[Rfam]
The family of this 73-nucleotide sequence from Capra hircus is "Small nucleolar RNA SNORD113/SNORD114 family". The imprinted human domain at 14q32 contains two clusters of tandemly repeated small nucleolar RNAs named 14q(I) and 14q(II) snoRNAs. These two clusters are named SNORD113 and SNORD114 respectively in the HGNC approved gene symbol nomenclature. The snoRNAs found in both clusters are clearly related and are represented here by a single family. These snoRNAs are intron encoded and are processed from the tissue-specific non-coding human MEG8 RNA, which lies downstream of the imprinted genes DLK1 and GTL2. snoRNAs 14q(I) and 14q(II) differ from previously identified C/D box snoRNAs in their expression profiles and lack of complementarity to rRNA and snRNA. Homologues of these snoRNAs are found in the imprinted non-coding mouse transcript Rian, and in the rat non-coding Bsr (brain-specific repetitive) RNA. Taxonomically the source falls in Capra (Eukaryota, Craniata, Amniota, Laurasiatheria). Its family is annotated with RNA processing and nucleolus in the Gene Ontology. The family's consensus secondary structure is taken from published work.
RNA sequence: CGGAUCAAUGAUGACUACUCGUGUUGUAUGAGCCGUGUAUGGUAAAUAACGUGUCUGAAACCCUGAGGCUUGU
Numbered sequence: 001c002g003g004a005u006c007a008a009u010g011a012u013g014a015c016u017a018c019u020c021g022u023g024u025u026g027u028a029u030g031a032g033c034c035g036u037g038u039a040u041g042g043u044a045a046a047u048a049a050c051g052u053g054u055c056u057g058a059a060a061c062c063c064u065g066a067g068g069c070u071u072g073u
Base pairs, nucleotide, nucleotide: 002071003070005068006067